[Rfam]
RNA sequence: GCCGCAGACCGCCUUAUCGUCGUCUUGCCUUUAUGGGCGAGAGGGAGGAAAGUCCGGACACCACAGAGAAGCAUAGCGGGUAACACCCGUCGGUUUCGUCUUUACGGAUGAGAUUAGGACAAGUGCAACAGAAAGUAUGUACAGGUAAUGCUGUAGUGAAACCAGGUAAACUCUAUGCGGUGAAAUAUCAAGUAUAUCAGCAUUUAAGGGUUUCUCGCCCGUUGCUGAAGGGUAGAUAGCUUGAGUCCAAGAGUAAUUUUGGAUCUAGAUAAAUGAUAAGGGUUUCGAGUAAUCGAAAUACAGAAUCCGGCUUAUAGGUCUGCUUUUUUU
Numbered sequence: 001g002c003c004g005c006a007g008a009c010c011g012c013c014u015u016a017u018c019g020u021c022g023u024c025u026u027g028c029c030u031u032u033a034u035g036g037g038c039g040a041g042a043g044g045g046a047g048g049a050a051a052g053u054c055c056g057g058a059c060a061c062c063a064c065a066g067a068g069a070a071g072c073a074u075a076g077c078g079g080g081u082a083a084c085a086c087c088c089g090u091c092g093g094u095u096u097c098g099u100c101u102u103u104a105c106g107g108a109u110g111a112g113a114u115u116a117g118g119a120c121a122a123g124u125g126c127a128a129c130a131g132a133a134a135g136u137a138u139g140u141a142c143a144g145g146u147a148a149u150g151c152u153g154u155a156g157u158g159a160a161a162c163c164a165g166g167u168a169a170a171c172u173c174u175a176u177g178c179g180g181u182g183a184a185a186u187a188u189c190a191a192g193u194a195u196a197u198c199a200g201c202a203u204u205u206a207a208g209g210g211u212u213u214c215u216c217g218c219c220c221g222u223u224g225c226u227g228a229a230g231g232g233u234a235g236a237u238a239g240c241u242u243g244a245g246u247c248c249a250a251g252a253g254u255a256a257u258u259u260u261g262g263a264u265c266u267a268g269a270u271a272a273a274u275g276a277u278a279a280g281g282g283u284u285u286c287g288a289g290u291a292a293u294c295g296a297a298a299u300a301c302a303g304a305a306u307c308c309g310g311c312u313u314a315u316a317g318g319u320c321u322g323c324u325u326u327u328u329u330u
Stems, first nucleotide, its partner, number of pairs: 001326001004323007011315001012281007020045002023042006050313003054310005059182004066216004071178005076090005091117001092115010118173002123171002125167002140155005186238004197228005208220004245264008

Shown here is a 330-nucleotide sequence from Flavobacterium sp. FPG59, a member of the family "Bacterial RNase P class A". Lineage of the source: Bacteria > Bacteroidota > Flavobacteriia > Flavobacteriales > Flavobacterium. Rfam links the family to the GO terms ribonuclease P activity, tRNA processing and dimeric ribonuclease P complex.